[Rfam]
RNA sequence: GUCUGUACAGUCGUUGCGUAUCCUAGACGGGCUUUGCAACGGCUUAAUAUUUAUAACUCUGUAGGAGUGCAUAGUGGCCCGUAUCGCUGGCAUUAACAUUCCUGAC
Numbered sequence: 001g002u003c004u005g006u007a008c009a010g011u012c013g014u015u016g017c018g019u020a021u022c023c024u025a026g027a028c029g030g031g032c033u034u035u036g037c038a039a040c041g042g043c044u045u046a047a048u049a050u051u052u053a054u055a056a057c058u059c060u061g062u063a064g065g066a067g068u069g070c071a072u073a074g075u076g077g078c079c080c081g082u083a084u085c086g087c088u089g090g091c092a093u094u095a096a097c098a099u100u101c102c103u104g105a106c
Stems, first nucleotide, its partner, number of pairs: 004049003009044005022090002028081004037104002
Dot-bracket structure: ...(((..(((((........[[....[[[[.....{{.)))))..)))............................]]]].......]]............}}..
The record is a 106-nucleotide RNA from Oceanisphaera avium, which matches "Alpha operon ribosome binding site" in Rfam.
The family's RNA type in Rfam is cis-regulatory element.
The bacterial alpha operon ribosome binding site is surrounded by this complex pseudoknotted structure. Translation of the mRNA produces 4 ribosomal protein products, one of which (S4) acts as a translational repressor by binding to the nested pseudoknot region. The mechanism of repression is thought to involve a conformational switch in the pseudoknot region and ribosome entrapment.
For this family Rfam cites "Translational repression of the Escherichia coli alpha operon mRNA: importance of an mRNA conformational switch and a ternary entrapment complex" (Schlax et al., J Biol Chem, 2001).